[Rfam]
Nucleotides: 077
Base pairs, nucleotide, nucleotide: 001047004044005043008040009039010065011064012063013062014061023036024035025034026033054072055071056070057069058068
Number, partner (000 for none) and nucleotide at each position: 001047u002000a003000c004044g005043c006000g007000a008040c009039u010065g011064g012063c013062g014061g015000c016000a017000c018000c019000g020000g021000g022000g023036a024035u025034g026033g027000g028000a029000u030000c031000g032000a033026c034025c035024a036023u037000c038000g039009g040008g041000g042000a043005g044004c045000u046000c047001g048000u049000c050000g051000u052000g053000g054072g055071g056070g057069u058068c059000g060000u061014c062013c063012g064011c065010c066000u067000g068058g069057g070056c071055u072054c073000c074000c075000g076000c077000g
Rfam assigns this 77-nucleotide RNA sequence from Micromonospora olivasterospora to the family "ZMP/ZTP riboswitch aptamer (pfl RNA motif)". The base pairs follow the family's consensus structure, which is taken from published work. Taxonomically the source falls in Micromonospora (Bacteria, Actinomycetota, Actinomycetes, Micromonosporales). The match comes from Rfam's covariance-model search (39 bits).